[Rfam]
Shown here is a 179-nucleotide RNA sequence from Prochlorococcus sp. AG-418-C09, a member of the family "permuted transfer-messenger RNA". It is annotated as a non-coding RNA gene.
RNA sequence: GGUGAUCUCAACCGAUACUUCGGACAGCGGUUCGAUUCCGCUCAACUCCAUUAUAUGGGGUUGUAAUGGUUUCGACGGGGUGUAAGGAAGGUGACUGAAGCCUGCUCGGCUAGGGCAAACACAUAAACGCUAACAACAUAGUUAGUUUCUCUCGUCAAACAGCACCAGUUGCUGCUUGA
Numbered sequence: 001g002g003u004g005a006u007c008u009c010a011a012c013c014g015a016u017a018c019u020u021c022g023g024a025c026a027g028c029g030g031u032u033c034g035a036u037u038c039c040g041c042u043c044a045a046c047u048c049c050a051u052u053a054u055a056u057g058g059g060g061u062u063g064u065a066a067u068g069g070u071u072u073c074g075a076c077g078g079g080g081u082g083u084a085a086g087g088a089a090g091g092u093g094a095c096u097g098a099a100g101c102c103u104g105c106u107c108g109g110c111u112a113g114g115g116c117a118a119a120c121a122c123a124u125a126a127a128c129g130c131u132a133a134c135a136a137c138a139u140a141g142u143u144a145g146u147u148u149c150u151c152u153c154g155u156c157a158a159a160c161a162g163c164a165c166c167a168g169u170u171g172c173u174g175c176u177u178g179a
Stems, first nucleotide, its partner, number of pairs: 001096003005092001016082003020078003026042005043063007